The family of this 92-nucleotide RNA is "Small nucleolar RNA R32/R81/Z41". Rfam links the family to the GO terms RNA processing and nucleolus. It scores 60 bits against the family's covariance model. The family's consensus secondary structure was predicted with PFOLD. For this family Rfam cites "Identification of 66 box C/D snoRNAs in Arabidopsis thaliana: extensive gene duplications generated multiple isoforms predicting new ribosomal RNA 2'-O-methylation sites" (Barneche et al., J Mol Biol, 2001).
[Rfam]
RNA sequence: GGAUGAAAGUGAUGAAUAGUGAUUAAACGGUGAUGGUGAAUUCCAUCUGAUCUGCAAAUCUUUCACUUCGCUACGUUCUUUCUGAUUCGUCC
Numbered sequence: 001g002g003a004u005g006a007a008a009g010u011g012a013u014g015a016a017u018a019g020u021g022a023u024u025a026a027a028c029g030g031u032g033a034u035g036g037u038g039a040a041u042u043c044c045a046u047c048u049g050a051u052c053u054g055c056a057a058a059u060c061u062u063u064c065a066c067u068u069c070g071c072u073a074c075g076u077u078c079u080u081u082c083u084g085a086u087u088c089g090u091c092c
Stems, first nucleotide, its partner, number of pairs: 004089004